Shown here is a 74-nucleotide RNA from Chanos chanos, a member of the family "mir-129 microRNA precursor family". Its family is annotated with RISC complex, miRNA-mediated post-transcriptional gene silencing and synapse in the Gene Ontology. Lineage of the source: Eukaryota > Bilateria > Gnathostomata > Actinopteri > Chanos.
RNA sequence: CAGAUACUUUUUGGGGUAAGGGCUUCCUGGCUAUUGUGAUCUGGAACAGCAAGCCCAGACCGCAAAAAGAUCCG
Dot-bracket structure: ......(((((((.(((..((((.(.((...................)).).))))..))).))))))).....